[Rfam]
RNA sequence: CGAGCUGGCCGGGUGAUCGCGGCAGUUAACGGAACCGGACGCCUCUUUUACAGAGUGUGUCCAGGCCGCUGUCGAGGAAAGUCCGGACUCCACUGGGCAUGGUGGUUGCUAACAGCAACCCAGGGUGACCUGCGGGAAUAGUGCCACAGAAAAUAGACCGCCGGGCGCACAGCCGAUGUCUUUGACGUAAAGCUGUGGAGAUCCGGUGAGGGUGAAAAGGUGCGGUAAGAGCGCACCAGCGGGGCAAGUGAUUGCACCGGCUAGGUAAACCCCACCAGGAGCAAGGCAAAAUCGCGCAUGCUUCGUCGUGCGUGUGCGCGAGUGUUUGAGGGCUGCCCGUCCGAUACUCGCGGGUGUGCUGCUUCAGGCUGUCAGCAAUGGCAGACCGAGAUGGAUGAUCGCCACCCGGCGCUUUCCGAAAGGAGCGCCGAGGGACAGAAUCCGGCUCAUAGGCCGACUCGUUCA
Numbered sequence: 001c002g003a004g005c006u007g008g009c010c011g012g013g014u015g016a017u018c019g020c021g022g023c024a025g026u027u028a029a030c031g032g033a034a035c036c037g038g039a040c041g042c043c044u045c046u047u048u049u050a051c052a053g054a055g056u057g058u059g060u061c062c063a064g065g066c067c068g069c070u071g072u073c074g075a076g077g078a079a080a081g082u083c084c085g086g087a088c089u090c091c092a093c094u095g096g097g098c099a100u101g102g103u104g105g106u107u108g109c110u111a112a113c114a115g116c117a118a119c120c121c122a123g124g125g126u127g128a129c130c131u132g133c134g135g136g137a138a139u140a141g142u143g144c145c146a147c148a149g150a151a152a153a154u155a156g157a158c159c160g161c162c163g164g165g166c167g168c169a170c171a172g173c174c175g176a177u178g179u180c181u182u183u184g185a186c187g188u189a190a191a192g193c194u195g196u197g198g199a200g201a202u203c204c205g206g207u208g209a210g211g212g213u214g215a216a217a218a219g220g221u222g223c224g225g226u227a228a229g230a231g232c233g234c235a236c237c238a239g240c241g242g243g244g245c246a247a248g249u250g251a252u253u254g255c256a257c258c259g260g261c262u263a264g265g266u267a268a269a270c271c272c273c274a275c276c277a278g279g280a281g282c283a284a285g286g287c288a289a290a291a292u293c294g295c296g297c298a299u300g301c302u303u304c305g306u307c308g309u310g311c312g313u314g315u316g317c318g319c320g321a322g323u324g325u326u327u328g329a330g331g332g333c334u335g336c337c338c339g340u341c342c343g344a345u346a347c348u349c350g351c352g353g354g355u356g357u358g359c360u361g362c363u364u365c366a367g368g369c370u371g372u373c374a375g376c377a378a379u380g381g382c383a384g385a386c387c388g389a390g391a392u393g394g395a396u397g398a399u400c401g402c403c404a405c406c407c408g409g410c411g412c413u414u415u416c417c418g419a420a421a422g423g424a425g426c427g428c429c430g431a432g433g434g435a436c437a438g439a440a441u442c443c444g445g446c447u448c449a450u451a452g453g454c455c456g457a458c459u460c461g462u463u464c465a
Stems, first nucleotide, its partner, number of pairs: 001461004006456005011450001012403007020074007080447002083445005088281004095338004100277005105119005120134001121132004135272002141270002143266003158211002160207006219237006239261001240259003244255004285360004318351006330342004367386001369384006
The family of this 465-nucleotide sequence from Corynebacterium sp. ATCC 6931 is "Bacterial RNase P class A".
The match comes from Rfam's covariance-model search (273 bits).
Lineage of the source: Bacteria > Bacillati > Actinomycetota > Corynebacteriaceae > Corynebacterium.
Rfam's curators write: Ribonuclease P (RNase P) is a ubiquitous endoribonuclease, found in archaea, bacteria and eukarya as well as chloroplasts and mitochondria.
It is annotated as a ribozyme.